[Rfam]
RNA sequence: GGAUAAUCCCAGGUGACUGGGGAAAAGUCGGGUCAGGCUGUUGGCCCGGCUCCUCGGAAAACGGAUCGCAAGAUUCGAACGAGAGGCAAAAUUCACCGGUUCCUCUGGCACGUUCGCGCGGGCCAGAACGCGAAAAUGGAAUCAGGCGGCGAGGGACGAUGAGAAACCGUUCCAGACCGAGUCAAGUAGUUCAGGCAGGUUUCGAGCCUGGAUGAAUCGCAGUUACCGAAAUGGUAUUUGGUUGCUACUGCGCAUCAGCACGGUGCGACUGACUCUGGCGGAAUUCAAAAAAUAAAAUUGAAUCCGCCAAAAGAAAAACGCCGGAAGGCGGACAAAGAGAGCGUUCGCAGCGGGAAGGUCACGACGGCUGGGCAAGUCGCGUGAAAACUUCCAAGGGUCGGCGAUGUUAAAAACGACACCGCUGAACUGUGAAAAAGGCAAUCUGUGAGUGAAGAGGCGAGACCCGUGCCUCGGGCGAACGCGCCGUCAAAAGCGGCGGCUGACCCGAAGCAAAUGGUCAAGACGCGAGAGAAAAUCGCAGGCGUGUCUUGACCUGGUUUGCAGGCCGGUGGCGCAACCAUCAGCCGAAGCGAGCUGAAAAGCCUCACUCGAAAUUCAGCAGCCGCAAGGCGCUGAACGGCCCUGCCACGAGGCCGAAGACUCCGCUUGCCGUGGAGAAUGGCGUCGGGAAACUGACAGCCCCUGAAAAAGGCGCGCGCCGAAUGUCAGUCCGGGAAAGAGAGUUUGGCGAACUCC
Numbered sequence: 001g002g003a004u005a006a007u008c009c010c011a012g013g014u015g016a017c018u019g020g021g022g023a024a025a026a027g028u029c030g031g032g033u034c035a036g037g038c039u040g041u042u043g044g045c046c047c048g049g050c051u052c053c054u055c056g057g058a059a060a061a062c063g064g065a066u067c068g069c070a071a072g073a074u075u076c077g078a079a080c081g082a083g084a085g086g087c088a089a090a091a092u093u094c095a096c097c098g099g100u101u102c103c104u105c106u107g108g109c110a111c112g113u114u115c116g117c118g119c120g121g122g123c124c125a126g127a128a129c130g131c132g133a134a135a136a137u138g139g140a141a142u143c144a145g146g147c148g149g150c151g152a153g154g155g156a157c158g159a160u161g162a163g164a165a166a167c168c169g170u171u172c173c174a175g176a177c178c179g180a181g182u183c184a185a186g187u188a189g190u191u192c193a194g195g196c197a198g199g200u201u202u203c204g205a206g207c208c209u210g211g212a213u214g215a216a217u218c219g220c221a222g223u224u225a226c227c228g229a230a231a232u233g234g235u236a237u238u239u240g241g242u243u244g245c246u247a248c249u250g251c252g253c254a255u256c257a258g259c260a261c262g263g264u265g266c267g268a269c270u271g272a273c274u275c276u277g278g279c280g281g282a283a284u285u286c287a288a289a290a291a292a293u294a295a296a297a298u299u300g301a302a303u304c305c306g307c308c309a310a311a312a313g314a315a316a317a318a319c320g321c322c323g324g325a326a327g328g329c330g331g332a333c334a335a336a337g338a339g340a341g342c343g344u345u346c347g348c349a350g351c352g353g354g355a356a357g358g359u360c361a362c363g364a365c366g367g368c369u370g371g372g373c374a375a376g377u378c379g380c381g382u383g384a385a386a387a388c389u390u391c392c393a394a395g396g397g398u399c400g401g402c403g404a405u406g407u408u409a410a411a412a413a414c415g416a417c418a419c420c421g422c423u424g425a426a427c428u429g430u431g432a433a434a435a436a437g438g439c440a441a442u443c444u445g446u447g448a449g450u451g452a453a454g455a456g457g458c459g460a461g462a463c464c465c466g467u468g469c470c471u472c473g474g475g476c477g478a479a480c481g482c483g484c485c486g487u488c489a490a491a492a493g494c495g496g497c498g499g500c501u502g503a504c505c506c507g508a509a510g511c512a513a514a515u516g517g518u519c520a521a522g523a524c525g526c527g528a529g530a531g532a533a534a535a536u537c538g539c540a541g542g543c544g545u546g547u548c549u550u551g552a553c554c555u556g557g558u559u560u561g562c563a564g565g566c567c568g569g570u571g572g573c574g575c576a577a578c579c580a581u582c583a584g585c586c587g588a589a590g591c592g593a594g595c596u597g598a599a600a601a602g603c604c605u606c607a608c609u610c611g612a613a614a615u616u617c618a619g620c621a622g623c624c625g626c627a628a629g630g631c632g633c634u635g636a637a638c639g640g641c642c643c644u645g646c647c648a649c650g651a652g653g654c655c656g657a658a659g660a661c662u663c664c665g666c667u668u669g670c671c672g673u674g675g676a677g678a679a680u681g682g683c684g685u686c687g688g689g690a691a692a693c694u695g696a697c698a699g700c701c702c703c704u705g706a707a708a709a710a711g712g713c714g715c716g717c718g719c720c721g722a723a724u725g726u727c728a729g730u731c732c733g734g735g736a737a738a739g740a741g742a743g744u745u746u747g748g749c750g751a752a753c754u755c756c
Stems, first nucleotide, its partner, number of pairs: 008021005026051010062077006098143006109122001111120002114133005147179003153173005163203005187215001189213008218252005224236004240443006277308006319330004353392005361382003365379003405418004447610003454606004469510001471508005482498006518552010557595006568582005615637006622631003638656005645683004661677006692730007699717002702712003741755003